[Rfam]
RNA sequence: UGGGGAGCCGUGUUAAUCGGACGUGACAGGGAUGAUGAACGCAGGGGUUUUUCCGAUUUCACCCUCCGGCCGACGAAAUGGCAGUCGAGUGUCCAACCUGUCCGGCGC
Numbered sequence: 001u002g003g004g005g006a007g008c009c010g011u012g013u014u015a016a017u018c019g020g021a022c023g024u025g026a027c028a029g030g031g032a033u034g035a036u037g038a039a040c041g042c043a044g045g046g047g048u049u050u051u052u053c054c055g056a057u058u059u060c061a062c063c064c065u066c067c068g069g070c071c072g073a074c075g076a077a078a079u080g081g082c083a084g085u086c087g088a089g090u091g092u093c094c095a096a097c098c099u100g101u102c103c104g105g106c107g108c
Stems, first nucleotide, its partner, number of pairs: 007106003011023004025102006034093004040068002043065004069082003